[Rfam]
RNA: L31-Actinobacteria ribosomal protein leader
RNA sequence: UUGGUUCCGGUUCACCCCGCCGACGUCGUGCCGACGCGUCGGGGACCCGGCGACA
Numbered sequence: 001u002u003g004g005u006u007c008c009g010g011u012u013c014a015c016c017c018c019g020c021c022g023a024c025g026u027c028g029u030g031c032c033g034a035c036g037c038g039u040c041g042g043g044g045a046c047c048c049g050g051c052g053a054c055a
Stems, first nucleotide, its partner, number of pairs: 004054002007050004015044005021038002